Background: Rfam assigns this 80-nucleotide RNA sequence from Trypanosoma theileri to the family "Small nucleolar RNA TBR6". The family has 3 seed sequences and 57 matches in Rfam 15.1. NCBI's taxonomy places the organism under Eukaryota, Euglenozoa, Kinetoplastea, Trypanosomatidae, Trypanosoma.
RNA sequence: CUCCUGAUGACAAGUAUAUGUUUGCACAUUUGCCGAAACUCCGUGAGUGACUUAUCAUAAUCUAAGAACACCAGCUGACG
Numbered sequence: 001c002u003c004c005u006g007a008u009g010a011c012a013a014g015u016a017u018a019u020g021u022u023u024g025c026a027c028a029u030u031u032g033c034c035g036a037a038a039c040u041c042c043g044u045g046a047g048u049g050a051c052u053u054a055u056c057a058u059a060a061u062c063u064a065a066g067a068a069c070a071c072c073a074g075c076u077g078a079c080g
Stems, first nucleotide, its partner, number of pairs: 001049001003047001005026002009022003033045001034043002
On this family, see Dunbar et al., Nucleic Acids Res 2000: "The genes for small nucleolar RNAs in Trypanosoma brucei are organized in clusters and are transcribed as a polycistronic RNA". The match comes from Rfam's covariance-model search (68 bits). About the family: TBR6 was one of seventeen snoRNAs identified in Trypanosoma brucei. Pairs were carried over by alignment from the consensus structure, which was predicted with RNAfold.